[Rfam]
RNA sequence: UGAAAGUCCCGGACGGCAGCCGCGAAUGAGCCAUGCUUGCAUGAGCGAAUUCACGGGUAUCGGACGGGCAAGCCGGUAUGAGCAAGGAGCGCGAUAACGCCGAAUUGCGAUGCUGGCGGCCAAUGCGGGAGCCACAAAGGGGCGGAGCAAUCGGCUUUCCA
Numbered sequence: 001u002g003a004a005a006g007u008c009c010c011g012g013a014c015g016g017c018a019g020c021c022g023c024g025a026a027u028g029a030g031c032c033a034u035g036c037u038u039g040c041a042u043g044a045g046c047g048a049a050u051u052c053a054c055g056g057g058u059a060u061c062g063g064a065c066g067g068g069c070a071a072g073c074c075g076g077u078a079u080g081a082g083c084a085a086g087g088a089g090c091g092c093g094a095u096a097a098c099g100c101c102g103a104a105u106u107g108c109g110a111u112g113c114u115g116g117c118g119g120c121c122a123a124u125g126c127g128g129g130a131g132c133c134a135c136a137a138a139g140g141g142g143c144g145g146a147g148c149a150a151u152c153g154g155c156u157u158u159c160c161a
Stems, first nucleotide, its partner, number of pairs: 001161002003158005008068004016060001018058001020056003024052004030046001032043004072117008082108004089100003120153001122151001124149003131143003
Clostridiales-1 RNA: a 161-nucleotide sequence. The base pairs follow the family's consensus structure, which is taken from published work.